The family of this 104-nucleotide sequence from Listeria fleischmannii is "SAM riboswitch aptamer (S box leader)". The SAM riboswitch is found upstream of a number of genes which code for proteins involved in methionine or cysteine biosynthesis in Gram-positive bacteria. Taxonomically the source falls in Listeria fleischmannii (Bacteria, Bacillati, Bacilli, Caryophanales). The base pairs follow the family's consensus structure, which is taken from published work. It scores 83 bits against the family's covariance model.

RNA sequence: CUCUUAUCCAGAGCGGUAGAGGGACUGGCCCUUUGAAGCCCAGCAACCUACACUUUUUGUUGUAAGGUGCUAACCUGAGCAGGAGAAAUCCUGACCGAUGAGAG
Numbered sequence: 001c002u003c004u005u006a007u008c009c010a011g012a013g014c015g016g017u018a019g020a021g022g023g024a025c026u027g028g029c030c031c032u033u034u035g036a037a038g039c040c041c042a043g044c045a046a047c048c049u050a051c052a053c054u055u056u057u058u059g060u061u062g063u064a065a066g067g068u069g070c071u072a073a074c075c076u077g078a079g080c081a082g083g084a085g086a087a088a089u090c091c092u093g094a095c096c097g098a099u100g101a102g103a104g
Base pairs, nucleotide, nucleotide: 001104002103003102004101005100006099007098008097013041015040016039017038021031022030023029025079026078028076042071043070044069045068047067048066049064050063051062052061080093081092082091083090084089